[Rfam]
RNA sequence: AAGAUCAUGCUUCAUAGGAUCAUUUCUAUAGUAUGAUUGCAAGGUUCGCAGUUGAACUUUGUUGGCAACUCCAACCACGAUGAUGUGUGAUGGGGUUUCUUCCUGAGCGUGAAUACGACUCGUAGGUACUCUUCGGAGUGUCUUGAGUCAUUGAUGAUCGCACUCUACGCCAUUGCGGUGAAGAGCUGGAAGUUACUCGAUCUGAGUGGU
Numbered sequence: 001a002a003g004a005u006c007a008u009g010c011u012u013c014a015u016a017g018g019a020u021c022a023u024u025u026c027u028a029u030a031g032u033a034u035g036a037u038u039g040c041a042a043g044g045u046u047c048g049c050a051g052u053u054g055a056a057c058u059u060u061g062u063u064g065g066c067a068a069c070u071c072c073a074a075c076c077a078c079g080a081u082g083a084u085g086u087g088u089g090a091u092g093g094g095g096u097u098u099c100u101u102c103c104u105g106a107g108c109g110u111g112a113a114u115a116c117g118a119c120u121c122g123u124a125g126g127u128a129c130u131c132u133u134c135g136g137a138g139u140g141u142c143u144u145g146a147g148u149c150a151u152u153g154a155u156g157a158u159c160g161c162a163c164u165c166u167a168c169g170c171c172a173u174u175g176c177g178g179u180g181a182a183g184a185g186c187u188g189g190a191a192g193u194u195a196c197u198c199g200a201u202c203u204g205a206g207u208g209g210u
Base pairs, nucleotide, nucleotide: 003038004037005036006035007034008033009032010031011030015028016027017026018025019024049064050063051062052061074210075209076208077207078206093198094197095196096195099192100191101190102189103188107161108160109159117149118148119147120146124144125143126142127140128139129138130137131136164184165183166182168180169179170178171177
RNA: Small nucleolar RNA U3